The record is a 147-nucleotide sequence from Microbacterium ginsengiterrae, which matches "FMN riboswitch aptamer (RFN element)" in Rfam.
The source organism's lineage runs through Bacteria, Actinomycetes, Micrococcales, Microbacteriaceae and Microbacterium.
About the family: The RFN element is a highly conserved domain that is found frequently in the 5'-untranslated regions of prokaryotic mRNAs that encode for flavin mononucleotide (FMN) biosynthesis and transport proteins.
The base pairs follow the family's consensus structure, which is taken from published work.
[Rfam]
RNA sequence: AAACGUGCUCCGGGGUCGGUGAGAAUCCGAACCGGCGGUGACAGUCCGCGAGCGUCGAGGGAAACCGCGAUGCCGAUCCGGUGGAAUUCCGGGACCGACGGUGAUGCGAGAGAGAUCUCGCUAGUCCGGAAGGGAGGCAGCACGAUG
Numbered sequence: 001a002a003a004c005g006u007g008c009u010c011c012g013g014g015g016u017c018g019g020u021g022a023g024a025a026u027c028c029g030a031a032c033c034g035g036c037g038g039u040g041a042c043a044g045u046c047c048g049c050g051a052g053c054g055u056c057g058a059g060g061g062a063a064a065c066c067g068c069g070a071u072g073c074c075g076a077u078c079c080g081g082u083g084g085a086a087u088u089c090c091g092g093g094a095c096c097g098a099c100g101g102u103g104a105u106g107c108g109a110g111a112g113a114g115a116u117c118u119c120g121c122u123a124g125u126c127c128g129g130a131a132g133g134g135a136g137g138c139a140g141c142a143c144g145a146u147g
Base pairs, nucleotide, nucleotide: 004144005143006142007141008140009139010136017029018028019027033097034096035049036048037047038046044095045094052073053072054071077093078092079091080090081089099128100127101126
Dot-bracket structure: ...(((((((......(((.......)))...((((((.....[[))))..(((................)))...(((((.......)))))]])).(((........................))).......)..))))))...